RNA sequence: UAGCUGGUGCAAGUCCAGCCGGGGUAAAGGCCAAGCUGCCCCGUAGCUAGCAGGCAACUUGGGGCGAGACCCGUGGGUUGAAGCCCUGCGAAAAGCAUGCCAGAAGCAUGUGAAGCAACUCCGCAGGCCGUAACAUGA
Numbered sequence: 001u002a003g004c005u006g007g008u009g010c011a012a013g014u015c016c017a018g019c020c021g022g023g024g025u026a027a028a029g030g031c032c033a034a035g036c037u038g039c040c041c042c043g044u045a046g047c048u049a050g051c052a053g054g055c056a057a058c059u060u061g062g063g064g065c066g067a068g069a070c071c072c073g074u075g076g077g078u079u080g081a082a083g084c085c086c087u088g089c090g091a092a093a094a095g096c097a098u099g100c101c102a103g104a105a106g107c108a109u110g111u112g113a114a115g116c117a118a119c120u121c122c123g124c125a126g127g128c129c130g131u132a133a134c135a136u137g138a
Stems, first nucleotide, its partner, number of pairs: 020043005050089005055080006064071001095111006115131002
RNA: Group II catalytic intron D1-D4-4
Organism: Thermobacillus composti